[Rfam]
RNA sequence: GUUGCUUCUUACUGGUGAAUUCUUUCUACUUCAGAAAUGGGGAUGUUCAUGUUUCAAAAGCAUAGAUUAAUUAAGGAAGAUUUAAUGCCAGUAUUAAACAGCAUGGUGUGCUCUUUCAUGUUGCACUGUGUUACCUGUCUAUUGGUAUACUC
Numbered sequence: 001g002u003u004g005c006u007u008c009u010u011a012c013u014g015g016u017g018a019a020u021u022c023u024u025u026c027u028a029c030u031u032c033a034g035a036a037a038u039g040g041g042g043a044u045g046u047u048c049a050u051g052u053u054u055c056a057a058a059a060g061c062a063u064a065g066a067u068u069a070a071u072u073a074a075g076g077a078a079g080a081u082u083u084a085a086u087g088c089c090a091g092u093a094u095u096a097a098a099c100a101g102c103a104u105g106g107u108g109u110g111c112u113c114u115u116u117c118a119u120g121u122u123g124c125a126c127u128g129u130g131u132u133a134c135c136u137g138u139c140u141a142u143u144g145g146u147a148u149a150c151u152c
Stems, first nucleotide, its partner, number of pairs: 003062005016049005021043005087146007100132003104128005
RNA: small nucleolar RNA snoR137